[Rfam]
RNA sequence: CUUGGCUACGGUGACAUGGUGCCCAAAACACCCAUGGGAAAAAUAGUUGGCAGCAUUUGUUCGCUGUCUGGCGUGCUCGUCAUCGCUUUGCCAGUGCCGGUAAUUGUGUCCAAU
Numbered sequence: 001c002u003u004g005g006c007u008a009c010g011g012u013g014a015c016a017u018g019g020u021g022c023c024c025a026a027a028a029c030a031c032c033c034a035u036g037g038g039a040a041a042a043a044u045a046g047u048u049g050g051c052a053g054c055a056u057u058u059g060u061u062c063g064c065u066g067u068c069u070g071g072c073g074u075g076c077u078c079g080u081c082a083u084c085g086c087u088u089u090g091c092c093a094g095u096g097c098c099g100g101u102a103a104u105u106g107u108g109u110c111c112a113a114u
Base pairs, nucleotide, nucleotide: 002113004111005110007108008107009106010105011104014101015100018097021095022094037077038076040074050062